About this RNA:
Shown here is a 95-nucleotide sequence from Staphylococcus epidermidis, a member of the family "ctRNA". For this family Rfam cites "pT181 plasmid replication is regulated by a countertranscript-driven transcriptional attenuator" (Novick et al., Cell, 1989).

RNA sequence: AUACAAGAUUAUAAAAACAACUCAGUGUUUUUUUCUUUGAAUGAUGUCGUUCACAAACUUUGGUCAAGGCGUGAGCGACUCCUUUUUAUUUUGUU
Numbered sequence: 001a002u003a004c005a006a007g008a009u010u011a012u013a014a015a016a017a018c019a020a021c022u023c024a025g026u027g028u029u030u031u032u033u034u035c036u037u038u039g040a041a042u043g044a045u046g047u048c049g050u051u052c053a054c055a056a057a058c059u060u061u062g063g064u065c066a067a068g069g070c071g072u073g074a075g076c077g078a079c080u081c082c083u084u085u086u087u088a089u090u091u092u093g094u095u
Stems, first nucleotide, its partner, number of pairs: 005037004013032007046079009
The sequence is in the family's curated seed alignment. Pairs were carried over by alignment from the consensus structure, which is taken from published work. Rfam's curators write: Rolling circle replication plasmids contain a number of mechanisms to maintain a low copy number. One of these methods is to transcribe a small RNA called ctRNA (for counter-transcribed RNA) than is transcribed on the opposite strand to RepB the replication initiation protein. ctRNA binds to the mRNA of repB and causes translational inhibition. The family's RNA type in Rfam is antisense RNA. Taxonomically the source falls in Staphylococcus epidermidis (Bacteria, Bacillota, Caryophanales, Staphylococcaceae).